[Rfam]
The record is an 85-nucleotide RNA sequence from Clostridium sp. Maddingley MBC34-26, which matches "c-di-GMP-I riboswitch aptamer" in Rfam. Gene Ontology term of the family: cyclic-di-GMP binding. The base pairs follow the family's consensus structure, which is taken from published work. The family has 155 seed sequences and 5,092 matches in Rfam 15.1. NCBI's taxonomy places the organism under Bacteria, Bacillati, Bacillota, Clostridia, Clostridium.
RNA sequence: AUAUUGAAUUGGCAAAGCAGUUGAAAAACUGUGACGCAAAGCUAGAGGGCCUUAUCCUUUGAUAGGAUGGCAGCCAGUUGCAAGU
Numbered sequence: 001a002u003a004u005u006g007a008a009u010u011g012g013c014a015a016a017g018c019a020g021u022u023g024a025a026a027a028a029c030u031g032u033g034a035c036g037c038a039a040a041g042c043u044a045g046a047g048g049g050c051c052u053u054a055u056c057c058u059u060u061g062a063u064a065g066g067a068u069g070g071c072a073g074c075c076a077g078u079u080g081c082a083a084g085u
Base pairs, nucleotide, nucleotide: 012037013036017032018031019030020029021028022027040079041078042077043076047075048074049071050070051069056066057065058064
Dot-bracket structure: ...........((...((((((....))))))...))..((((...(((((....(((.....)))..)))..))))))......